Alphaproteobacteria transfer-messenger RNA: a 350-nucleotide RNA sequence from Rhodobaculum claviforme.
RNA sequence: AGGCUUGAAACGCCGGGGCGGGAUGCGUAUCUUUGGGAUGUUCCGGCAACGGGACUAUGGACAUAAACGCGCUCGGAAUAAGCGGAUCGGACCCGGGGGCGGUACCCGGCGGCUCCACCAUAACCCCUCAUUGGGGGAGUUUGGGGCCGAAACAGGAUCGACGAACGUGUAAAGGAGUGGCUUUGUCCCGGUGAGGUACCACCGUUAUCGGUCCGAAAAGUACAGUUGCCAAUGACAACCGUGCUCCGGUGGCCGUUGCUGCGUAAGCAGUAGCGACAUCGAAACCUAAGCCCAGGCGUGUAGCAGCGUCUGGCGGGGUCCGCAGGCACCUGGCAACAGAAGCCUGCACU
Numbered sequence: 001a002g003g004c005u006u007g008a009a010a011c012g013c014c015g016g017g018g019c020g021g022g023a024u025g026c027g028u029a030u031c032u033u034u035g036g037g038a039u040g041u042u043c044c045g046g047c048a049a050c051g052g053g054a055c056u057a058u059g060g061a062c063a064u065a066a067a068c069g070c071g072c073u074c075g076g077a078a079u080a081a082g083c084g085g086a087u088c089g090g091a092c093c094c095g096g097g098g099g100c101g102g103u104a105c106c107c108g109g110c111g112g113c114u115c116c117a118c119c120a121u122a123a124c125c126c127c128u129c130a131u132u133g134g135g136g137g138a139g140u141u142u143g144g145g146g147c148c149g150a151a152a153c154a155g156g157a158u159c160g161a162c163g164a165a166c167g168u169g170u171a172a173a174g175g176a177g178u179g180g181c182u183u184u185g186u187c188c189c190g191g192u193g194a195g196g197u198a199c200c201a202c203c204g205u206u207a208u209c210g211g212u213c214c215g216a217a218a219a220g221u222a223c224a225g226u227u228g229c230c231a232a233u234g235a236c237a238a239c240c241g242u243g244c245u246c247c248g249g250u251g252g253c254c255g256u257u258g259c260u261g262c263g264u265a266a267g268c269a270g271u272a273g274c275g276a277c278a279u280c281g282a283a284a285c286c287u288a289a290g291c292c293c294a295g296g297c298g299u300g301u302a303g304c305a306g307c308g309u310c311u312g313g314c315g316g317g318g319u320c321c322g323c324a325g326g327c328a329c330c331u332g333g334c335a336a337c338a339g340a341a342g343c344c345u346g347c348a349c350u
Stems, first nucleotide, its partner, number of pairs: 040055005059188005069181002071178004083167002087164003093109005110149007189204004195214002198212003316331004322347006
Bacterial tmRNA, also known as 10Sa RNA or SsrA, is named for its dual tRNA and mRNA-like properties. Its role is to liberate the mRNA from a stalled ribosome. To accomplish this part of the tmRNA is used as a reading frame that ends in a translation stop signal. For this family Rfam cites "BRUCE: a program for the detection of transfer-messenger RNA genes in nucleotide sequences" (Laslett et al., Nucleic Acids Res, 2002). The match comes from Rfam's covariance-model search (288 bits).